[Rfam]
Annotation
The record is a 141-nucleotide RNA sequence from Digitaria exilis, which matches "Small nucleolar RNA snoR136" in Rfam. Taxonomically the source falls in Digitaria (Eukaryota, Tracheophyta, Mesangiospermae, Petrosaviidae). Rfam classes the family as an H/ACA-box small nucleolar RNA. A reference for the family is Chen and Wu (2009), "Mining small RNA sequencing data: a new approach to identify small nucleolar RNAs in Arabidopsis", Nucleic Acids Res.
Nucleotides: 141
Stems, first nucleotide, its partner, number of pairs: 001073001003070003008065001012057002015054001023051007032042003080134007088125002093123005103111001
Number, partner (000 for none) and nucleotide at each position: 001073u002000c003070g004069g005068c006000u007000u008065c009000u010000c011000u012057u013056g014000a015054u016000u017000u018000c019000g020000u021000u022000g023051u024050g025049c026048c027047u028046g029045u030000g031000a032042g033041c034040c035000u036000g037000u038000a039000u040034g041033g042032u043000u044000c045029g046028u047027g048026g049025g050024c051023a052000g053000u054015g055000c056013c057012a058000a059000g060000a061000a062000u063000g064000u065008g066000a067000a068005g069004c070003u071000a072000a073001a074000g075000a076000g077000a078000u079000u080134g081133u082132u083131c084130c085129u086128c087000u088125c089124g090000c091000u092000a093123u094122c095121c096120g097119g098000c099000g100000c101000g102000g103111a104000u105000u106000u107000u108000u109000u110000g111103u112000g113000a114000u115000g116000c117000g118000a119097u120096u121095g122094g123093a124089c125088g126000u127000c128086g129085a130084g131083g132082a133081a134080c135000u136000a137000c138000a139000g140000u141000u